Shown here is an 80-nucleotide RNA from Caenorhabditis remanei, a member of the family "mir-237 microRNA precursor family". Its family is annotated with miRNA-mediated post-transcriptional gene silencing and RISC complex in the Gene Ontology. The sequence is in the family's curated seed alignment. Lineage of the source: Eukaryota > Opisthokonta > Rhabditida > Peloderinae > Caenorhabditis. Pairs were carried over by alignment from the consensus structure, which was predicted with RNAalifold.
RNA sequence: GUCUUUGGUGGUCCCUGAGAAUGCUCUGACUGCUUUCGAAGUACACGCAGCAGUCGAGUAUCCUUAGGAACCAGUAAAUU
Numbered sequence: 001g002u003c004u005u006u007g008g009u010g011g012u013c014c015c016u017g018a019g020a021a022u023g024c025u026c027u028g029a030c031u032g033c034u035u036u037c038g039a040a041g042u043a044c045a046c047g048c049a050g051c052a053g054u055c056g057a058g059u060a061u062c063c064u065u066a067g068g069a070a071c072c073a074g075u076a077a078a079u080u
Base pairs, nucleotide, nucleotide: 004078005077006076007075009073010072011071012070014068015067016066017065018064021061022060023059024058025057026056028055029054030053034050035049037047038046